[Rfam]
RNA: Streptococcus sRNA SpR19
Organism: Streptococcus sp. DD10
RNA sequence: GCGUUUUUCUAGCGAGCUUGGGAGGGUGAAAGCCAAGUAAAGCAAAGUAAGAAACUGGCACUUUCUGUUAUAUUUUUAAAAGGAAUGAAGUAAUAAAUUAGGGUGGAACCGCGUUUCUGACG
Numbered sequence: 001g002c003g004u005u006u007u008u009c010u011a012g013c014g015a016g017c018u019u020g021g022g023a024g025g026g027u028g029a030a031a032g033c034c035a036a037g038u039a040a041a042g043c044a045a046a047g048u049a050a051g052a053a054a055c056u057g058g059c060a061c062u063u064u065c066u067g068u069u070a071u072a073u074u075u076u077u078a079a080a081a082g083g084a085a086u087g088a089a090g091u092a093a094u095a096a097a098u099u100a101g102g103g104u105g106g107a108a109c110c111g112c113g114u115u116u117c118u119g120a121c122g
Stems, first nucleotide, its partner, number of pairs: 001112002003109005008103002016071001021066003025062004031056002038049002074090005